The family of this 155-nucleotide RNA sequence from Populus trichocarpa is "MIR2912 microRNA precursor family".
Pairs were carried over by alignment from the consensus structure, which was predicted with RNAalifold.
The organism belongs to Populus, within Eukaryota.

RNA sequence: UUUGGACUUCUAGAUAUGGGCUGAACGCUGAACAGUGUCUGGGCUGCAGGAUAGAUUCUGACUUUUCUGUUGUUGCUAAGAUUUGGACUUCCAAACAGCAGAAUUGAGUCUUGGACUCCCAUGAAUGUUUUAGGCUUAUGUCUUAGCUUUCUAGC
Numbered sequence: 001u002u003u004g005g006a007c008u009u010c011u012a013g014a015u016a017u018g019g020g021c022u023g024a025a026c027g028c029u030g031a032a033c034a035g036u037g038u039c040u041g042g043g044c045u046g047c048a049g050g051a052u053a054g055a056u057u058c059u060g061a062c063u064u065u066u067c068u069g070u071u072g073u074u075g076c077u078a079a080g081a082u083u084u085g086g087a088c089u090u091c092c093a094a095a096c097a098g099c100a101g102a103a104u105u106g107a108g109u110c111u112u113g114g115a116c117u118c119c120c121a122u123g124a125a126u127g128u129u130u131u132a133g134g135c136u137u138a139u140g141u142c143u144u145a146g147c148u149u150u151c152u153a154g155c
Base pairs, nucleotide, nucleotide: 002154003153004152005151006150008146009145012143013142014141015140016139017138018137019136020135021133022132023131024130025129027128028127035122036121037120041119042118043117045115048112049111050110051109052108054105055104056103057102058101059100060099062098063097069091072088073087074086